[Rfam]
RNA sequence: AAGUUCCACUAGGGGUGCCCGGGCAAGGGCUGAGACAAGCAUGGCUUGAUCCCUUUGAACCUGAUCUAGUUCAUACUAGCGUAGGGAAGUGGUAUCGCAGUACU
Numbered sequence: 001a002a003g004u005u006c007c008a009c010u011a012g013g014g015g016u017g018c019c020c021g022g023g024c025a026a027g028g029g030c031u032g033a034g035a036c037a038a039g040c041a042u043g044g045c046u047u048g049a050u051c052c053c054u055u056u057g058a059a060c061c062u063g064a065u066c067u068a069g070u071u072c073a074u075a076c077u078a079g080c081g082u083a084g085g086g087a088a089g090u091g092g093u094a095u096c097g098c099a100g101u102a103c104u
Stems, first nucleotide, its partner, number of pairs: 006092005011054004016048001017030004037047004060085004066079004

Rfam assigns this 104-nucleotide RNA from Alteribacter keqinensis to the family "TPP riboswitch aptamer (THI element)". The base pairs follow the family's consensus structure, which is taken from published work. Vitamin B(1) in its active form thiamin pyrophosphate (TPP) is an essential coenzyme that is synthesised by coupling of pyrimidine and thiazole moieties in bacteria. A search with the family's covariance model found it, with a score of 86 bits. The organism belongs to Alteribacter, within Bacteria.